[Rfam]
RNA sequence: GGGCUGGCUCUAGCUAAGCGGUUCCCUUGCAACUUUGAUUUGCUAAAGGCAUACAGUCCCGGAGGGCGCUCCCCAGCCUUUUA
Numbered sequence: 001g002g003g004c005u006g007g008c009u010c011u012a013g014c015u016a017a018g019c020g021g022u023u024c025c026c027u028u029g030c031a032a033c034u035u036u037g038a039u040u041u042g043c044u045a046a047a048g049g050c051a052u053a054c055a056g057u058c059c060c061g062g063a064g065g066g067c068g069c070u071c072c073c074c075a076g077c078c079u080u081u082u083a
Base pairs, nucleotide, nucleotide: 002078003077004076005075006074007073013067014066015065019061020060021059026056027055
This 83-nucleotide sequence from Otolemur garnettii belongs to the Rfam family "Vault RNA". Rfam classes the family as a non-coding RNA gene. This family of RNAs are found as part of the enigmatic vault ribonucleoprotein complex. The complex consists of a major vault protein (MVP), two minor vault proteins (VPARP and TEP1), and several small untranslated RNA molecules. Lineage of the source: Eukaryota > Euteleostomi > Mammalia > Euarchontoglires > Otolemur.